The record is a 127-nucleotide RNA from Xenopus laevis, which matches "Small nucleolar RNA SNORA49" in Rfam.
The family has 21 seed sequences and 722 matches in Rfam 15.1.
NCBI's taxonomy places the organism under Eukaryota, Deuterostomia, Sarcopterygii, Pipoidea, Xenopus.
The base pairs follow the family's consensus structure, which was predicted with RNAalifold.
The match comes from Rfam's covariance-model search (54 bits).
By type it is an H/ACA-box small nucleolar RNA.

[Rfam]
RNA sequence: AUUCCUCAUCCUUACUCCAGGGUUAUUGUUGCUUGUACAUUCCCUGGCAUUAAUUGAGGAUAAAGUAAUUGCUCUGAUUUGCCUUUGGAAACUUGUUUUCCUUAGGGCUUAGUUAAGUGCAAACACU
Numbered sequence: 001a002u003u004c005c006u007c008a009u010c011c012u013u014a015c016u017c018c019a020g021g022g023u024u025a026u027u028g029u030u031g032c033u034u035g036u037a038c039a040u041u042c043c044c045u046g047g048c049a050u051u052a053a054u055u056g057a058g059g060a061u062a063a064a065g066u067a068a069u070u071g072c073u074c075u076g077a078u079u080u081g082c083c084u085u086u087g088g089a090a091a092c093u094u095g096u097u098u099u100c101c102u103u104a105g106g107g108c109u110u111a112g113u114u115a116a117g118u119g120c121a122a123a124c125a126c127u
Stems, first nucleotide, its partner, number of pairs: 003060006017047006025041001027039003070121003074117002083106003087102002090099001